[Rfam]
RNA: Small nucleolar RNA SNORD100
RNA sequence: UGUAUCAAUGAUGAUCAUUUGGCUCCCUCUACUGACGUAAAACAGUGAGGAAGAUUGCCAGAAUUGUUACCCAAACCUUCUGAGAUACA
Numbered sequence: 001u002g003u004a005u006c007a008a009u010g011a012u013g014a015u016c017a018u019u020u021g022g023c024u025c026c027c028u029c030u031a032c033u034g035a036c037g038u039a040a041a042a043c044a045g046u047g048a049g050g051a052a053g054a055u056u057g058c059c060a061g062a063a064u065u066g067u068u069a070c071c072c073a074a075a076c077c078u079u080c081u082g083a084g085a086u087a088c089a
Stems, first nucleotide, its partner, number of pairs: 001089006